[Rfam]
RNA sequence: UAGCUCAGUUGGUAGAGCAGUUGACUUUUAAUCAAUUGGUCGCAGGUUCGAAUCCUGCACGACCCACCAUUCUCGCGAUGUGUCAUCGGUGUUUAGCGUGAAGGAUAACAUCGCUCAGCGAUGGCCCGAAGGGCGAGGCGUCAACCGAGUCAUCCUGCACGACCCACCA
Numbered sequence: 001u002a003g004c005u006c007a008g009u010u011g012g013u014a015g016a017g018c019a020g021u022u023g024a025c026u027u028u029u030a031a032u033c034a035a036u037u038g039g040u041c042g043c044a045g046g047u048u049c050g051a052a053u054c055c056u057g058c059a060c061g062a063c064c065c066a067c068c069a070u071u072c073u074c075g076c077g078a079u080g081u082g083u084c085a086u087c088g089g090u091g092u093u094u095a096g097c098g099u100g101a102a103g104g105a106u107a108a109c110a111u112c113g114c115u116c117a118g119c120g121a122u123g124g125c126c127c128g129a130a131g132g133g134c135g136a137g138g139c140g141u142c143a144a145c146c147g148a149g150u151c152a153u154c155c156u157g158c159a160c161g162a163c164c165c166a167c168c169a
Stems, first nucleotide, its partner, number of pairs: 015160001017158004022152001037135002040133002047130004055103001109123006
RtT RNA: a 169-nucleotide RNA sequence from Edwardsiella hoshinae. Gene Ontology term of the family: cellular response to amino acid starvation. The literature on the family includes a 1991 paper in Nucleic Acids Res by Bosl and Kersten, "A novel RNA product of the tyrT operon of Escherichia coli". Rfam 15.1 lists 651 matches to the family in 204 species. This family represents a bacterial cis-regulatory element known as RtT RNA. The exact function of RtT is unknown although it is thought that it may be involved in changing the cellular response in relation to amino acid starvation.